[Rfam]
RNA sequence: CUAUCUCUUGCUUCAACAUUGUUUGGAUAGAAUAG
Numbered sequence: 001c002u003a004u005c006u007c008u009u010g011c012u013u014c015a016a017c018a019u020u021g022u023u024u025g026g027a028u029a030g031a032a033u034a035g
Stems, first nucleotide, its partner, number of pairs: 001035004006031003010028001012027005017021001
Description
The record is a 35-nucleotide RNA sequence from Loxodonta africana, which matches "Iron response element I" in Rfam. Its family is annotated with response to iron ion in the Gene Ontology. By type it is a cis-regulatory element. Pairs were carried over by alignment from the consensus structure, which is taken from published work.